Shown here is a 73-nucleotide sequence from Medicago truncatula, a member of the family "MIR2629 microRNA precursor family".
A search with the family's covariance model found it, with a score of 64 bits.
[Rfam]
RNA sequence: UACCGAGGUUAUCCUCGGCAGUUAACUGCAACCAUAUUUUUAAUUCCUCGGCAGUUAACUGCCGAAGGGGCAA
Numbered sequence: 001u002a003c004c005g006a007g008g009u010u011a012u013c014c015u016c017g018g019c020a021g022u023u024a025a026c027u028g029c030a031a032c033c034a035u036a037u038u039u040u041u042a043a044u045u046c047c048u049c050g051g052c053a054g055u056u057a058a059c060u061g062c063c064g065a066a067g068g069g070g071c072a073a
Stems, first nucleotide, its partner, number of pairs: 012069002015066001016064014